[Rfam]
RNA sequence: GUAUACACUAUAUUAUGUAUAAAUGUAUACACACUUCUAUAUGUGCCCACAUAUAUACAGUGUAUCUAUUAUACUGGUAUAGGUGUUUGUGU
Numbered sequence: 001g002u003a004u005a006c007a008c009u010a011u012a013u014u015a016u017g018u019a020u021a022a023a024u025g026u027a028u029a030c031a032c033a034c035u036u037c038u039a040u041a042u043g044u045g046c047c048c049a050c051a052u053a054u055a056u057a058c059a060g061u062g063u064a065u066c067u068a069u070u071a072u073a074c075u076g077g078u079a080u081a082g083g084u085g086u087u088u089g090u091g092u
Stems, first nucleotide, its partner, number of pairs: 003086004008082006017074006024068002027065006038055007
This 92-nucleotide RNA from Rattus norvegicus belongs to the Rfam family "mir-568 microRNA precursor family". It is one of the family's seed sequences. Lineage of the source: Eukaryota > Metazoa > Euarchontoglires > Muridae > Rattus.